Shown here is a 128-nucleotide RNA sequence from Cucurbita maxima, a member of the family "U11 spliceosomal RNA".
The family's consensus secondary structure is taken from published work.
A search with the family's covariance model found it, with a score of 68 bits.
[Rfam]
RNA sequence: UAAAAGGGUCGGUUGGCUAAAUAUGCCGCGCUCUCUCUCAACGAGUGGGUGCUGUAUGGCAAUCUAGACAUAUGGCCGACAUAAUUUGUGGAAACGAAAUAGGGUUGGCCCAAUUGGCCGACCCUCCA
Numbered sequence: 001u002a003a004a005a006g007g008g009u010c011g012g013u014u015g016g017c018u019a020a021a022u023a024u025g026c027c028g029c030g031c032u033c034u035c036u037c038u039c040a041a042c043g044a045g046u047g048g049g050u051g052c053u054g055u056a057u058g059g060c061a062a063u064c065u066a067g068a069c070a071u072a073u074g075g076c077c078g079a080c081a082u083a084a085u086u087u088g089u090g091g092a093a094a095c096g097a098a099a100u101a102g103g104g105u106u107g108g109c110c111c112a113a114u115u116g117g118c119c120g121a122c123c124c125u126c127c128a
Base pairs, nucleotide, nucleotide: 008080009079010078011077012076014028015027016026017025029051030050031049032048033047035045036044037043052075053074054073055072056071057070058069101125102124103123104122105121106120107119108118110117111116